[Rfam]
RNA sequence: UCCCGAUAAAGGCAAAGUCCGGGCAACCGGGCGGCGCAAAGUUACGGGUCCUUCAGCUGCAGUAUCAAUAGCCGCUGGGGGAUCGCCGGACCGCCGAA
Numbered sequence: 001u002c003c004c005g006a007u008a009a010a011g012g013c014a015a016a017g018u019c020c021g022g023g024c025a026a027c028c029g030g031g032c033g034g035c036g037c038a039a040a041g042u043u044a045c046g047g048g049u050c051c052u053u054c055a056g057c058u059g060c061a062g063u064a065u066c067a068a069u070a071g072c073c074g075c076u077g078g079g080g081g082a083u084c085g086c087c088g089g090a091c092c093g094c095c096g097a098a
Base pairs, nucleotide, nucleotide: 012037013036017032018031019030020029021028022027041091042090043089045088046087047086048083049082050081051080052079053078054077055076056075057074
Description:
The record is a 98-nucleotide sequence from Marinobacterium nitratireducens, which matches "c-di-GMP-I riboswitch aptamer" in Rfam. The organism belongs to Marinobacterium, within Bacteria.